Rfam assigns this 136-nucleotide sequence from Nothobranchius furzeri to the family "Small nucleolar RNA SNORA29". Rfam links the family to the GO terms nucleolus and RNA processing. The family's RNA type in Rfam is H/ACA-box small nucleolar RNA. ACA29 is a member of the H/ACA class of snoRNA that guide the sites of modification of uridines to pseudouridines.
RNA sequence: AAUCCCAUAUUAGUACCUUCCGUUCAAACACAAUGAAUGGAGGGCUAUGCUAAUGGGACAGAGCAACACUGUCAUGGUCUGAAGGUGUGGCUAGCUGAUGUGCGCCCCACUAAAUAAAAUGACAGAAUAUUCCAAA
Numbered sequence: 001a002a003u004c005c006c007a008u009a010u011u012a013g014u015a016c017c018u019u020c021c022g023u024u025c026a027a028a029c030a031c032a033a034u035g036a037a038u039g040g041a042g043g044g045c046u047a048u049g050c051u052a053a054u055g056g057g058a059c060a061g062a063g064c065a066a067c068a069c070u071g072u073c074a075u076g077g078u079c080u081g082a083a084g085g086u087g088u089g090g091c092u093a094g095c096u097g098a099u100g101u102g103c104g105c106c107c108c109a110c111u112a113a114a115u116a117a118a119a120u121g122a123c124a125g126a127a128u129a130u131u132c133c134a135a136a
Stems, first nucleotide, its partner, number of pairs: 004057004016044004071123004087111001088109003
Overview: For this family Rfam cites "RNomics: an experimental approach that identifies 201 candidates for novel, small, non-messenger RNAs in mouse" (Huttenhofer et al., EMBO J, 2001).